[Rfam]
RNA sequence: CCACUACUUUAACAUUGGUGUACUUUCUAUGUCUUUAAAAAGGGUAAGUGCUCCAAUGUUUUAGUGG
Number, nucleotide and partner (000 for none) at each position: 001c000002c000003a000004c000005u066006a065007c064008u063009u000010u000011a060012a059013c058014a057015u056016u055017g054018g053019u000020g051021u050022a049023c048024u047025u046026u000027c044028u043029a000030u000031g000032u000033c000034u000035u000036u000037a000038a000039a000040a000041a000042g000043g028044g027045u000046a025047a024048g023049u022050g021051c020052u000053c018054c017055a016056a015057u014058g013059u012060u011061u000062u000063a008064g007065u006066g005067g000

This 67-nucleotide sequence from Xenopus tropicalis belongs to the Rfam family "mir-302 microRNA precursor family". Rfam 15.1 lists 2,090 matches to the family in 516 species. Rfam's curators put it in the seed alignment. The organism belongs to Silurana, within Eukaryota. The family's consensus secondary structure was predicted with RNAalifold.